[Rfam]
RNA sequence: GACUGAUACCGGACACGGGCGUUGAGGGAACUCUGCGCCCGUGUCUGCAUGUUAAGGGAAAAAUAAAUGGC
Numbered sequence: 001g002a003c004u005g006a007u008a009c010c011g012g013a014c015a016c017g018g019g020c021g022u023u024g025a026g027g028g029a030a031c032u033c034u035g036c037g038c039c040c041g042u043g044u045c046u047g048c049a050u051g052u053u054a055a056g057g058g059a060a061a062a063a064u065a066a067a068u069g070g071c
Stems, first nucleotide, its partner, number of pairs: 003012003013044009024033003

A member of the RNA family "tpke11" from Providencia alcalifaciens, 71 nucleotides long. The literature on the family includes a 2001 paper in Curr Biol by Rivas et al., "Computational identification of noncoding RNAs in E. coli by comparative genomics". The family's consensus secondary structure was predicted with WAR. Gene Ontology term of the family: response to temperature stimulus. Lineage of the source: Bacteria > Pseudomonadati > Gammaproteobacteria > Enterobacterales > Providencia alcalifaciens. Rfam's curators write: In Yersinia located in ICR upstream dnaJ (chaperone)gene. Has temperature responsive RNA structure.